RNA sequence: GGGUUCAGAAAAGAUUAUCUUUUCUGAAGGGUAAAUAUAAUGAUAGUCGGGCCGCUAUCU
Number, nucleotide and partner (000 for none) at each position: 001g000002g000003g000004u000005u027006c026007a025008g024009a023010a022011a021012a020013g000014a000015u000016u000017a000018u000019c000020u012021u011022u010023u009024c008025u007026g006027a005028a000029g000030g000031g000032u000033a000034a000035a000036u000037a000038u000039a000040a000041u000042g059043a058044u057045a056046g055047u054048c000049g000050g000051g000052c000053c000054g047055c046056u045057a044058u043059c042060u000

The record is a 60-nucleotide RNA sequence, which matches "nhaA-I RNA" in Rfam. Pairs were carried over by alignment from the consensus structure, which is taken from published work. About the family: Acidobacteria, Alphaproteobacteria, Betaproteobacteria and Gammaproteobacteria, Verrucomicrobia, cand. division NC10. It is annotated as a riboswitch.